[Rfam]
RNA: Small nucleolar RNA SNORD58
Organism: Danio rerio
RNA sequence: GUACGAUGAUGACAAUCUUAGGACACCUUUGGAGGUUAUGGCCAGUGAGAAAAACAACACUUUCUGAGUGCG
Number, nucleotide and partner (000 for none) at each position: 001g071002u070003a069004c068005g000006a000007u000008g000009a000010u000011g000012a000013c000014a000015a000016u000017c000018u000019u000020a000021g000022g000023a000024c000025a000026c000027c000028u000029u000030u000031g000032g000033a000034g000035g000036u000037u000038a000039u000040g000041g000042c000043c000044a000045g000046u000047g000048a000049g000050a000051a000052a000053a000054a000055c000056a000057a000058c000059a000060c000061u000062u000063u000064c000065u000066g000067a000068g004069u003070g002071c001072g000